The family of this 97-nucleotide RNA sequence from Serinicoccus chungangensis is "Glycine riboswitch aptamer". Taxonomically the source falls in Serinicoccus (Bacteria, Bacillati, Actinomycetota, Actinomycetes).

RNA sequence: CGACGUCGCGUGGGAGAGUCCUCUCCGCACAGCGGUGAGGCGCCGAAGGGGCAUACUCCCCAUCAAGCUCUCAGGCGCCCGGGACCACGCGAAGCAG
Numbered sequence: 001c002g003a004c005g006u007c008g009c010g011u012g013g014g015a016g017a018g019u020c021c022u023c024u025c026c027g028c029a030c031a032g033c034g035g036u037g038a039g040g041c042g043c044c045g046a047a048g049g050g051g052c053a054u055a056c057u058c059c060c061c062a063u064c065a066a067g068c069u070c071u072c073a074g075g076c077g078c079c080c081g082g083g084a085c086c087a088c089g090c091g092a093a094g095c096a097g
Stems, first nucleotide, its partner, number of pairs: 006092008020040004042076003045072002049070003055063001